The record is a 378-nucleotide RNA from candidate division Zixibacteria bacterium RBG-1, which matches "Bacterial RNase P class A" in Rfam. It is annotated as a ribozyme. The organism belongs to Candidatus Zixiibacteriota, within Bacteria. A search with the family's covariance model found it, with a score of 261 bits.
RNA sequence: AAAGUAAACCAGGUGGUCGCCCCGAUUAAAAUCGGGGAGGAAAGUCCGAGCUCCCCCAGGGACAGUGCCCCGUAACGCGGGGGACCUGUGAAGGUACGGAAAGUGCCACAGAAACUAAACCGGCCGGUUGUCAACUGAAAAGUCGGCAGCCGACCAAGGGUGAAACGGUGGUGUAAGAGACCACCCGGCUUUGAGGAAACUUAAAGUUGGGAAAACCCCACUGGGAGCAAGACCGCAUAAGGAAGGAGAAAACCUGGUUCGCUUGUACUUCCGGGUAGGUCGCUAGGACCUCUUUAGCAAUAAAGGGGCUAGAUUAAUGGUCACCAGCAAGCUAAGACAGCUUGUCUCACAGAACUCGGCUUAUGGUUUACUCUGGCU
Numbered sequence: 001a002a003a004g005u006a007a008a009c010c011a012g013g014u015g016g017u018c019g020c021c022c023c024g025a026u027u028a029a030a031a032u033c034g035g036g037g038a039g040g041a042a043a044g045u046c047c048g049a050g051c052u053c054c055c056c057c058a059g060g061g062a063c064a065g066u067g068c069c070c071c072g073u074a075a076c077g078c079g080g081g082g083g084a085c086c087u088g089u090g091a092a093g094g095u096a097c098g099g100a101a102a103g104u105g106c107c108a109c110a111g112a113a114a115c116u117a118a119a120c121c122g123g124c125c126g127g128u129u130g131u132c133a134a135c136u137g138a139a140a141a142g143u144c145g146g147c148a149g150c151c152g153a154c155c156a157a158g159g160g161u162g163a164a165a166c167g168g169u170g171g172u173g174u175a176a177g178a179g180a181c182c183a184c185c186c187g188g189c190u191u192u193g194a195g196g197a198a199a200c201u202u203a204a205a206g207u208u209g210g211g212a213a214a215a216c217c218c219c220a221c222u223g224g225g226a227g228c229a230a231g232a233c234c235g236c237a238u239a240a241g242g243a244a245g246g247a248g249a250a251a252a253c254c255u256g257g258u259u260c261g262c263u264u265g266u267a268c269u270u271c272c273g274g275g276u277a278g279g280u281c282g283c284u285a286g287g288a289c290c291u292c293u294u295u296a297g298c299a300a301u302a303a304a305g306g307g308g309c310u311a312g313a314u315u316a317a318u319g320g321u322c323a324c325c326a327g328c329a330a331g332c333u334a335a336g337a338c339a340g341c342u343u344g345u346c347u348c349a350c351a352g353a354a355c356u357c358g359g360c361u362u363a364u365g366g367u368u369u370a371c372u373c374u375g376g377c378u
Base pairs, nucleotide, nucleotide: 001374003372004371005370006369007368008367009366010365011364012325013324014323015322016321017320018319020037021036022035023034024033025032026031042362043361044360046359047358048357049356050355051227052226053225054224059260060259061258063223064222065221066220067219068082069081070080071079072078083097084095085094086093087092098218099217103216104215106211107210120159121158122155123154125152126151127150128149129148130147131146132145167185168184169183170182171181172180188207189206190205191204192203193202194201195200231281232280233279234278241272242271243270244269245268253265256262289308290307291306292305293304294303295302296301